RNA sequence: UGCUGCUUCUCUUGAGCCAUUCUAGGUCUCACUCACUUGCAAGAGAGACUGGUUCAGGAAUUUAUCAGGGAUAGCC
Dot-bracket structure: .((((..((.(((((....((((.((((..(.((.(((....))).)).))))).)))).....))))))))))).
A member of the RNA family "mir-1200 microRNA precursor family" from Sus scrofa, 76 nucleotides long.
The source organism's lineage runs through Eukaryota, Deuterostomia, Sarcopterygii, Amniota and Sus.
A search with the family's covariance model found it, with a score of 79 bits.